Source information
Shown here is a 79-nucleotide sequence from Chelydra serpentina, a member of the family "mir-16 microRNA precursor family". The family's consensus secondary structure was predicted with PFOLD. Its Rfam clan is "mir-15 clan". The literature on the family includes a 2002 paper in Proc Natl Acad Sci U S A by Calin et al., "Frequent deletions and down-regulation of micro- RNA genes miR15 and miR16 at 13q14 in chronic lymphocytic leukemia".
[Rfam]
RNA sequence: CCCCGCCAGCAGCAGCACAGAAGUAAGGGUGGCAAUACCGUACCAUGCCACCCUUAUUUCUGUGCUGCUGCUGGCGGUG
Numbered sequence: 001c002c003c004c005g006c007c008a009g010c011a012g013c014a015g016c017a018c019a020g021a022a023g024u025a026a027g028g029g030u031g032g033c034a035a036u037a038c039c040g041u042a043c044c045a046u047g048c049c050a051c052c053c054u055u056a057u058u059u060c061u062g063u064g065c066u067g068c069u070g071c072u073g074g075c076g077g078u079g
Stems, first nucleotide, its partner, number of pairs: 001079001003077001005075003011069008020059001022058008
It scores 39 bits against the family's covariance model.